[Rfam]
RNA sequence: UUGCGCAAGUGAUGGUCUGGGUAGCAAUCUUUGCAAUCAUUUGUCGCGCCGGCAGGGUUAAGCUUGUUUCCAGUUUCAAGGCCCGGACGAACAUGUCCAUGCGCACUGCCCAACCAGGCAGGCCGCCGCAGCCGAUCUUACCGGAUCACGCUGCUCCCGGGUCCGCACCGCCCAAUCAGGCGGGCGAGAAAAACGGUGUUACCCACGCCGCAGACGGACGAACACAAAAAGGGCAGCCUGCGGGGCUGCCCU
Numbered sequence: 001u002u003g004c005g006c007a008a009g010u011g012a013u014g015g016u017c018u019g020g021g022u023a024g025c026a027a028u029c030u031u032u033g034c035a036a037u038c039a040u041u042u043g044u045c046g047c048g049c050c051g052g053c054a055g056g057g058u059u060a061a062g063c064u065u066g067u068u069u070c071c072a073g074u075u076u077c078a079a080g081g082c083c084c085g086g087a088c089g090a091a092c093a094u095g096u097c098c099a100u101g102c103g104c105a106c107u108g109c110c111c112a113a114c115c116a117g118g119c120a121g122g123c124c125g126c127c128g129c130a131g132c133c134g135a136u137c138u139u140a141c142c143g144g145a146u147c148a149c150g151c152u153g154c155u156c157c158c159g160g161g162u163c164c165g166c167a168c169c170g171c172c173c174a175a176u177c178a179g180g181c182g183g184g185c186g187a188g189a190a191a192a193a194c195g196g197u198g199u200u201a202c203c204c205a206c207g208c209c210g211c212a213g214a215c216g217g218a219c220g221a222a223c224a225c226a227a228a229a230a231g232g233g234c235a236g237c238c239u240g241c242g243g244g245g246c247u248g249c250c251c252u
Stems, first nucleotide, its partner, number of pairs: 001012004044056002076192001081162004085098004101126003108119003128154004134147005164186003168183005194210006230252004235247004

Pseudomonas sRNA P24: a 252-nucleotide sequence from Pseudomonas pohangensis. Rfam describes the family as follows. This small RNA (sRNA) was computationally identified in the genome of the opportunistic pathogen Pseudomonas aeruginosa and its expression verified by Northern blot analysis. P24 is conserved across several Pseudomonas species and in Azotobacter vinelandii. It appears to be consistently located between a hypothetical protein gene and a transcriptional regulator gene (AsnC family) in the genomes of all these species. P24 has a predicted Rho independent terminator at the 3' end but the function of P24 is unknown. It is annotated as a non-coding RNA gene. A search with the family's covariance model found it, with a score of 102 bits.